Rfam assigns this 392-nucleotide RNA from Propionibacterium sp. oral taxon 192 to the family "Bacterial RNase P class A". The family's RNA type in Rfam is ribozyme. A search with the family's covariance model found it, with a score of 276 bits. The literature on the family includes a 1998 paper in Annu Rev Biochem by Frank and Pace, "Ribonuclease P: unity and diversity in a tRNA processing ribozyme". The family's consensus secondary structure is taken from published work.
[Rfam]
RNA sequence: CGAGUCGGCCGGGUGAUCGCGGCGCAAGCUGAGGAAAGUCCGGACUCCACAGGGCAAGGUGGUGGGUAACACCCACCCGGGGCGACCCGCGGGACAGUGCCACAGAGAAUAGACCGCCUGAAUGCUUCGGUAUUUGGGUAAGGGUGAAACGGUGGUGCAAGAGACCACCGCGCGACUGGUGACAGUCGUGGCAGGGCAAACCCCACCUGGAGCAAGACCAGACAGCAGACGUUCGAGGGCUGCCCGCCCGAGUCUGCGGGUAGGUCGCACGCGCACCGGGGAACCGGUGCGGGAAGGUCACCAGAAAUGGUGAUCGCAGAUGGAUGAUCACCGCACCCGGCAUCCGCGAGGAACCGGGUGAACAGAAUCCGGCUCACAGGCCGACUCGUCUU
Numbered sequence: 001c002g003a004g005u006c007g008g009c010c011g012g013g014u015g016a017u018c019g020c021g022g023c024g025c026a027a028g029c030u031g032a033g034g035a036a037a038g039u040c041c042g043g044a045c046u047c048c049a050c051a052g053g054g055c056a057a058g059g060u061g062g063u064g065g066g067u068a069a070c071a072c073c074c075a076c077c078c079g080g081g082g083c084g085a086c087c088c089g090c091g092g093g094a095c096a097g098u099g100c101c102a103c104a105g106a107g108a109a110u111a112g113a114c115c116g117c118c119u120g121a122a123u124g125c126u127u128c129g130g131u132a133u134u135u136g137g138g139u140a141a142g143g144g145u146g147a148a149a150c151g152g153u154g155g156u157g158c159a160a161g162a163g164a165c166c167a168c169c170g171c172g173c174g175a176c177u178g179g180u181g182a183c184a185g186u187c188g189u190g191g192c193a194g195g196g197c198a199a200a201c202c203c204c205a206c207c208u209g210g211a212g213c214a215a216g217a218c219c220a221g222a223c224a225g226c227a228g229a230c231g232u233u234c235g236a237g238g239g240c241u242g243c244c245c246g247c248c249c250g251a252g253u254c255u256g257c258g259g260g261u262a263g264g265u266c267g268c269a270c271g272c273g274c275a276c277c278g279g280g281g282a283a284c285c286g287g288u289g290c291g292g293g294a295a296g297g298u299c300a301c302c303a304g305a306a307a308u309g310g311u312g313a314u315c316g317c318a319g320a321u322g323g324a325u326g327a328u329c330a331c332c333g334c335a336c337c338c339g340g341c342a343u344c345c346g347c348g349a350g351g352a353a354c355c356g357g358g359u360g361a362a363c364a365g366a367a368u369c370c371g372g373c374u375c376a377c378a379g380g381c382c383g384a385c386u387c388g389u390c391u392u
Base pairs, nucleotide, nucleotide: 001388002387003386004385005384006383007382008381009380010379011377012332013331014330015329016328017327018326020031021030022029023028037374038373040372041371042370043369044368045212046211047210048209052245053244054243055242057208058207059206060205061204062076063075064074065073066072077091078089079088080087081086092203093202097201098200099197100196101195114143115142116139117138118137120135121134122133123132124131125130151169152168153167154166155165156164170192171190172189173188174187175186176185177184178183216266217265218264219263225257226256227255228254229253230252237249238248239247240246273315